The family of this 105-nucleotide sequence from Aquibacillus salsiterrae is "SAM riboswitch aptamer (S box leader)". Lineage of the source: Bacteria > Bacillota > Bacilli > Caryophanales > Aquibacillus.

RNA sequence: CUCUUAUCACGAGUAGGCUGAGGGAUUUGGCCCUAUGACGCCCGGCAACCGCCCUUUUGGGAAUGGUGCUACUUCCAACAGGCAGAGAUGUCUGAAAGAUAAGGG
Numbered sequence: 001c002u003c004u005u006a007u008c009a010c011g012a013g014u015a016g017g018c019u020g021a022g023g024g025a026u027u028u029g030g031c032c033c034u035a036u037g038a039c040g041c042c043c044g045g046c047a048a049c050c051g052c053c054c055u056u057u058u059g060g061g062a063a064u065g066g067u068g069c070u071a072c073u074u075c076c077a078a079c080a081g082g083c084a085g086a087g088a089u090g091u092c093u094g095a096a097a098g099a100u101a102a103g104g105g
Stems, first nucleotide, its partner, number of pairs: 001105008013043001016042003022033003027078004044070004049066002052061003074097001079094006